[Rfam]
RNA: c-di-GMP-I riboswitch aptamer
Organism: Sulfurovum sp. AR
RNA sequence: AGUGAAAAAAGCCAAACCUGUUGUGAAGUAGGGACGGAAAGCCAAGGGUCUCAAUUUUAAUGAGAUAGCCAAGUUGCCUUU
Numbered sequence: 001a002g003u004g005a006a007a008a009a010a011g012c013c014a015a016a017c018c019u020g021u022u023g024u025g026a027a028g029u030a031g032g033g034a035c036g037g038a039a040a041g042c043c044a045a046g047g048g049u050c051u052c053a054a055u056u057u058u059a060a061u062g063a064g065a066u067a068g069c070c071a072a073g074u075u076g077c078c079u080u081u
Base pairs, nucleotide, nucleotide: 012037013036017032018031019030020029021028022027040075041074042073046070047069048066049065050064055060